[Rfam]
RNA sequence: AAGUGAGAUGAUAUACCAUCUUUCAGGACUGACCUGAAAUGGAGAGAGCUCUUAAUUGCUGAGCACUU
Numbered sequence: 001a002a003g004u005g006a007g008a009u010g011a012u013a014u015a016c017c018a019u020c021u022u023u024c025a026g027g028a029c030u031g032a033c034c035u036g037a038a039a040u041g042g043a044g045a046g047a048g049c050u051c052u053u054a055a056u057u058g059c060u061g062a063g064c065a066c067u068u
Base pairs, nucleotide, nucleotide: 001068002067003066004065005064